Shown here is a 111-nucleotide RNA from Arabidopsis lyrata, a member of the family "Small nucleolar RNA snoR17".
RNA sequence: CAUAGUGAUGAAUUAUAUCACAAUUGUCACUACCUCUGAGGCAUAUUCUUGGUUUAUUGUUUUUUUUUUGUUACCUAUGUUUGAACUUAACUAGUUCUUAGAAGCCUGGUG
Number, nucleotide and partner (000 for none) at each position: 001c000002a000003u000004a031005g030006u029007g028008a027009u026010g000011a000012a000013u000014u000015a000016u000017a000018u000019c000020a000021c000022a000023a000024u000025u000026g009027u008028c007029a006030c005031u004032a000033c000034c000035u000036c000037u000038g000039a000040g000041g000042c000043a000044u000045a000046u000047u000048c000049u000050u000051g000052g000053u000054u000055u000056a000057u000058u000059g000060u000061u000062u000063u000064u000065u000066u000067u000068u000069u000070g000071u000072u000073a000074c000075c000076u000077a000078u000079g000080u102081u101082u100083g099084a000085a000086c000087u000088u000089a000090a000091c000092u000093a000094g000095u000096u000097c000098u000099u083100a082101g081102a080103a000104g000105c000106c000107u000108g000109g000110u000111g000

The base pairs follow the family's consensus structure, which was predicted with CMfinder. On this family, see Brown et al., RNA 2001: "Multiple snoRNA gene clusters from Arabidopsis".